Record summary
mir-2 microRNA precursor family: a 67-nucleotide RNA from Mesorhabditis belari. The source organism's lineage runs through Eukaryota, Bilateria, Ecdysozoa, Rhabditidae and Mesorhabditis.

RNA sequence: CGGCGCGUCAAAGUGGACCGUGAUUUGUCUUUUAUGAUCAUAUCACAGCCAGCUUUGAUGUGCUGUA
Numbered sequence: 001c002g003g004c005g006c007g008u009c010a011a012a013g014u015g016g017a018c019c020g021u022g023a024u025u026u027g028u029c030u031u032u033u034a035u036g037a038u039c040a041u042a043u044c045a046c047a048g049c050c051a052g053c054u055u056u057g058a059u060g061u062g063c064u065g066u067a
Stems, first nucleotide, its partner, number of pairs: 005061009014051003018048001020046004026042003
The literature on the family includes a 2001 paper in Cell by Ambros, "microRNAs: tiny regulators with great potential".